[Rfam]
RNA sequence: AGCUAUCGUUUUACCUGAACAUUAUUAGAUUUCAUUUUCUUCUAAUACUGUCAGGUAAUGACGAUCGCU
Numbered sequence: 001a002g003c004u005a006u007c008g009u010u011u012u013a014c015c016u017g018a019a020c021a022u023u024a025u026u027a028g029a030u031u032u033c034a035u036u037u038u039c040u041u042c043u044a045a046u047a048c049u050g051u052c053a054g055g056u057a058a059u060g061a062c063g064a065u066c067g068c069u
Stems, first nucleotide, its partner, number of pairs: 001069003005065006011058007020050002023047007

Description:
Rfam assigns this 69-nucleotide RNA from Panagrolaimus sp. JU765 to the family "mir-236 microRNA precursor family". Rfam links the family to the GO terms miRNA-mediated post-transcriptional gene silencing and RISC complex. The family's consensus secondary structure was predicted with RNAalifold. Clan: mir-8 microRNA precursor clan. NCBI's taxonomy places the organism under Eukaryota, Metazoa, Bilateria, Panagrolaimoidea, Panagrolaimus. The match comes from Rfam's covariance-model search (68 bits).